[Rfam]
RNA sequence: CAGUUAAAAGGCUCGUAGUUGGACCUUGGGUUGGGACGAUUGGUCCGCCUAUGGUGAGCACCGUCGACUCGUCCCUUCUGCCGACAAUGCGCUCCUGGCCUUAACUGGCCGGGUCGUGCCUCCGGCGUUGUUACUUUGAAGAAAUUAGAGUGCUCAAAGCAAGCCUACGCUCUGUAUACAUUAGAAUGUGAUAAGAUCAUAGGAUUUCGAUCCUAUUCUGUUGGCCUUCGGGAUCGGAGUAAUGAUGAACAGGGACAGUCGGGGACAUUCGUAUUUCAUAAUCAGAGGUGAAAUUCUUGGAUUUAUGAAAGACGAACAACUGCGAAAGCAUUUGCCAAGGAUGUUUUCAUUAAUCAAGAACAAAAGUUUGGGGCUCGAAGACGAUCAGAUACCGUCCUAGUCUCAACCAUAAACGAUGCCGACCAGGGAUUGGCAGACGUUGCUUUAAGGACUCCACCAGCACCUUAUGAGAAAUCAAAGUUUUUGGGUUCCGGGGGGAGUAUGGUCGCAAGGUUGAAACUUAAAGGAAU
Numbered sequence: 001c002a003g004u005u006a007a008a009a010g011g012c013u014c015g016u017a018g019u020u021g022g023a024c025c026u027u028g029g030g031u032u033g034g035g036a037c038g039a040u041u042g043g044u045c046c047g048c049c050u051a052u053g054g055u056g057a058g059c060a061c062c063g064u065c066g067a068c069u070c071g072u073c074c075c076u077u078c079u080g081c082c083g084a085c086a087a088u089g090c091g092c093u094c095c096u097g098g099c100c101u102u103a104a105c106u107g108g109c110c111g112g113g114u115c116g117u118g119c120c121u122c123c124g125g126c127g128u129u130g131u132u133a134c135u136u137u138g139a140a141g142a143a144a145u146u147a148g149a150g151u152g153c154u155c156a157a158a159g160c161a162a163g164c165c166u167a168c169g170c171u172c173u174g175u176a177u178a179c180a181u182u183a184g185a186a187u188g189u190g191a192u193a194a195g196a197u198c199a200u201a202g203g204a205u206u207u208c209g210a211u212c213c214u215a216u217u218c219u220g221u222u223g224g225c226c227u228u229c230g231g232g233a234u235c236g237g238a239g240u241a242a243u244g245a246u247g248a249a250c251a252g253g254g255a256c257a258g259u260c261g262g263g264g265a266c267a268u269u270c271g272u273a274u275u276u277c278a279u280a281a282u283c284a285g286a287g288g289u290g291a292a293a294u295u296c297u298u299g300g301a302u303u304u305a306u307g308a309a310a311g312a313c314g315a316a317c318a319a320c321u322g323c324g325a326a327a328g329c330a331u332u333u334g335c336c337a338a339g340g341a342u343g344u345u346u347u348c349a350u351u352a353a354u355c356a357a358g359a360a361c362a363a364a365a366g367u368u369u370g371g372g373g374c375u376c377g378a379a380g381a382c383g384a385u386c387a388g389a390u391a392c393c394g395u396c397c398u399a400g401u402c403u404c405a406a407c408c409a410u411a412a413a414c415g416a417u418g419c420c421g422a423c424c425a426g427g428g429a430u431u432g433g434c435a436g437a438c439g440u441u442g443c444u445u446u447a448a449g450g451a452c453u454c455c456a457c458c459a460g461c462a463c464c465u466u467a468u469g470a471g472a473a474a475u476c477a478a479a480g481u482u483u484u485u486g487g488g489u490u491c492c493g494g495g496g497g498g499a500g501u502a503u504g505g506u507c508g509c510a511a512g513g514u515u516g517a518a519a520c521u522u523a524a525a526g527g528a529a530u
Base pairs, nucleotide, nucleotide: 001493003491009490011361013359014358018354019353020352252348253347254346255345256343257342259340260339264336266334267333270314271313274310275309276308277307278306279305280304281303285296286295287294322329323328366407367406368405370403371402376400380396381395382394383393418489419488420487421482422481423480425465426464427463430460431459432458433457436454437453439452440451441450469476470475495522496521497520504515505514506513507512